[Rfam]
Record summary
This 71-nucleotide sequence from Carassius auratus belongs to the Rfam family "Small nucleolar RNA SNORD83". A search with the family's covariance model found it, with a score of 40 bits. Gene Ontology terms of the family: nucleolus and RNA processing. Rfam classes the family as a C/D-box small nucleolar RNA.

RNA sequence: GCCACAUGAAGUAGAUGGCAUUAGCACAACUGCAAAGAUGACCGUCCAUCUAUCACCCGAGACUGAUGGCU
Numbered sequence: 001g002c003c004a005c006a007u008g009a010a011g012u013a014g015a016u017g018g019c020a021u022u023a024g025c026a027c028a029a030c031u032g033c034a035a036a037g038a039u040g041a042c043c044g045u046c047c048a049u050c051u052a053u054c055a056c057c058c059g060a061g062a063c064u065g066a067u068g069g070c071u
Stems, first nucleotide, its partner, number of pairs: 001070004024033003